RNA sequence: UAAUUGAUUUAACUCCUGGCCUCUGUGUCUAAGCCGUUGCUCUAUCAAAUGGACAACACAUUGAUAUGAUACUUUGGUCGUGGCUCCUGAGUUACCAAGGUGCAAGGUAGAAAUACCCGCAUCUCCCGUACUUGGAAGGUGUUAUUGUGGAACAACU
Numbered sequence: 001u002a003a004u005u006g007a008u009u010u011a012a013c014u015c016c017u018g019g020c021c022u023c024u025g026u027g028u029c030u031a032a033g034c035c036g037u038u039g040c041u042c043u044a045u046c047a048a049a050u051g052g053a054c055a056a057c058a059c060a061u062u063g064a065u066a067u068g069a070u071a072c073u074u075u076g077g078u079c080g081u082g083g084c085u086c087c088u089g090a091g092u093u094a095c096c097a098a099g100g101u102g103c104a105a106g107g108u109a110g111a112a113a114u115a116c117c118c119g120c121a122u123c124u125c126c127c128g129u130a131c132u133u134g135g136a137a138g139g140u141g142u143u144a145u146u147g148u149g150g151a152a153c154a155a156c157u
Stems, first nucleotide, its partner, number of pairs: 004150001006148001011143003015139002019078003025072005033065001035063002080095005098124006106117004125135002
A member of the RNA family "Molybdenum/Tungsten riboswitch aptamer (Moco RNA motif)" from Xenorhabdus koppenhoeferi, 157 nucleotides long. The base pairs follow the family's consensus structure, which is taken from published work. It scores 60 bits against the family's covariance model. Its family is annotated with tungstate binding, molybdenum ion binding and regulation of gene expression in the Gene Ontology.